[Rfam]
RNA sequence: UCCUUAUCAAGAGUGACGGAGGGAUGGGCCUUUGAUGUCACAGCAACCUUCCUAUUGGAGUGGUGCUAAGUCCAGCAGAGUGUGUAAUCAUUCUGGAAGAUAAGGA
Dot-bracket structure: ((((((((....(((((....((.[.[[))......)))))((((.((((((....)))).))))))...(]].]((((((........))))))..)))))))))
Rfam assigns this 106-nucleotide sequence from Pontibacillus yanchengensis to the family "SAM riboswitch aptamer (S box leader)". Pairs were carried over by alignment from the consensus structure, which is taken from published work. From the family's description: The SAM riboswitch is found upstream of a number of genes which code for proteins involved in methionine or cysteine biosynthesis in Gram-positive bacteria. The SAM riboswitch acts at the level of transcription termination control. The predicted structure consists of a complex stem-loop region followed by a single stem loop terminator region. An alternative and mutually exclusive form involves bases in the 3' segment of helix 1 with those in the 5' region of helix 5 to form a structure termed the anti-terminator form. The match comes from Rfam's covariance-model search (83 bits).